Shown here is a 320-nucleotide RNA sequence from Roseivirga spongicola, a member of the family "Bacterial RNase P class A". It is annotated as a ribozyme. Lineage of the source: Bacteria > Bacteroidota > Cytophagales > Roseivirgaceae > Roseivirga.
[Rfam]
RNA sequence: GAUAUAGACCGUCUUAUCGCUGUUCUGAGUAAUCAGAAGGGAGGAAAGUCCGGGCACCACAGGGAAGCAUAGCGGCUAACGGCCGUCAUUCGUCAACUGACGGAGAGGACAAGUGCAACAGAAAGAAUGUACAGGUAAUGCUGUAGUGAAAUCAGGUAAACUCUAUGCGGUGAAAUGCCACGUAUACUUGUGCUUGAGGGUACCCGCCCGAUACAAGAGGGUAGGCAGAUUGAUCCUGAUAGUAAUGUCAGGACUAGAUAAAUGAUAAGAUCAUCCCAAAAGGGAGUAGACAGAACCCGGCUUACAGGUCUAUAUCUUUU
Number, nucleotide and partner (000 for none) at each position: 001g316002a315003u314004a313005u312006a311007g310008a309009c308010c307011g305012u270013c269014u268015u267016a266017u265018c264019g000020c041021u040022g000023u038024u037025c036026u035027g034028a033029g000030u000031a000032a000033u028034c027035a026036g025037a024038a023039g000040g021041g020042a000043g000044g000045a000046a303047a302048g301049u000050c300051c299052g298053g297054g296055c172056a171057c170058c169059a000060c000061a000062g205063g204064g203065a000066a000067g168068c167069a166070u165071a164072g086073c085074g084075g083076c082077u000078a000079a000080c000081g000082g076083c075084c074085g073086u072087c107088a000089u104090u103091c102092g101093u100094c099095a000096a000097c000098u000099g094100a093101c092102g091103g090104a089105g000106a000107g087108g163109a162110c000111a000112a000113g161114u160115g157116c156117a000118a000119c000120a000121g000122a000123a000124a000125g000126a000127a000128u000129g000130u145131a144132c143133a142134g141135g000136u000137a000138a000139u000140g000141c134142u133143g132144u131145a130146g000147u000148g000149a000150a000151a000152u000153c000154a000155g000156g116157u115158a000159a000160a114161c113162u109163c108164u071165a070166u069167g068168c067169g058170g057171u056172g055173a000174a000175a000176u227177g226178c225179c224180a000181c000182g000183u000184a000185u000186a000187c217188u216189u215190g214191u213192g000193c000194u000195u000196g000197a000198g209199g208200g207201u206202a000203c064204c063205c062206g201207c200208c199209c198210g000211a000212u000213a191214c190215a189216a188217g187218a000219g000220g000221g000222u000223a000224g179225g178226c177227a176228g000229a000230u000231u000232g000233a000234u253235c252236c251237u250238g249239a248240u247241a246242g000243u000244a000245a000246u241247g240248u239249c238250a237251g236252g235253a234254c000255u000256a000257g000258a000259u000260a000261a000262a000263u000264g018265a017266u016267a015268a014269g013270a012271u000272c000273a000274u000275c000276c000277c000278a000279a000280a000281a000282g000283g000284g000285a000286g000287u000288a000289g000290a000291c000292a000293g000294a000295a000296c054297c053298c052299g051300g050301c048302u047303u046304a000305c011306a000307g010308g009309u008310c007311u006312a005313u004314a003315u002316c001317u000318u000319u000320u000